This 77-nucleotide RNA sequence from Alligator sinensis belongs to the Rfam family "Mammalian CPEB3 ribozyme". The base pairs follow the family's consensus structure, which is taken from published work.
RNA sequence: AGUUGCAAGUUUGAAGCCACAGCAGAAGUGCUCACAAUGUGGCCCUGUGAGAUUCCAAUGAAUCUUCAAAUUCUACU
Numbered sequence: 001a002g003u004u005g006c007a008a009g010u011u012u013g014a015a016g017c018c019a020c021a022g023c024a025g026a027a028g029u030g031c032u033c034a035c036a037a038u039g040u041g042g043c044c045c046u047g048u049g050a051g052a053u054u055c056c057a058a059u060g061a062a063u064c065u066u067c068a069a070a071u072u073c074u075a076c077u
Base pairs, nucleotide, nucleotide: 013045016043017042018041021077022076024074025073026072027071028040029039030038049066050065051064052063053062054061055060
A search with the family's covariance model found it, with a score of 46 bits. Lineage of the source: Eukaryota > Eumetazoa > Teleostomi > Dipnotetrapodomorpha > Alligator.